[Rfam]
Nucleotides: 135
Stems, first nucleotide, its partner, number of pairs: 007041003011037007057087009096130011
Number, partner (000 for none) and nucleotide at each position: 001000c002000c003000a004000a005000g006000a007041c008040c009039g010000g011037c012036a013035g014034g015033g016032c017031c018000u019000c020000u021000c022000c023000u024000c025000c026000u027000c028000c029000c030000u031017g032016g033015c034014c035013c036012u037011g038000c039009c040008g041007g042000a043000a044000c045000c046000u047000g048000g049000c050000a051000a052000c053000a054000g055000a056000c057087c058086g059085a060084u061083c062082g063081c064080u065079c066000u067000c068000u069000c070000c071000u072000c073000c074000u075000c076000c077000c078000u079065g080064a081063g082062c083061g084060g085059u086058c087057g088000u089000c090000a091000a092000a093000c094000g095000a096130a097129c098128g099127g100126c101125g102124g103123u104122g105121c106120c107000u108000c109000u110000c111000c112000u113000c114000c115000u116000c117000c118000c119000u120106g121105g122104c123103a124102c125101c126100g127099c128098c129097g130096u131000u132000u133000u134000u135000c

Annotation: This 135-nucleotide RNA from Pseudooceanicola algae belongs to the Rfam family "Alphaproteobacterial ar14". About the family: Smr14C2 was renamed NfeR1 (Nodule Formation Efficiency RNA) highly expressed in salt stress and during the symbiotic interaction on legume roots. Lineage of the source: Bacteria > Pseudomonadati > Rhodobacterales > Paracoccaceae > Pseudooceanicola. A reference for the family is del Val et al. (2012), "A survey of sRNA families in alpha-proteobacteria", RNA Biol. The pairing is the family consensus, mapped onto this sequence. A search with the family's covariance model found it, with a score of 60 bits. Its family is annotated with biological process involved in symbiotic interaction in the Gene Ontology.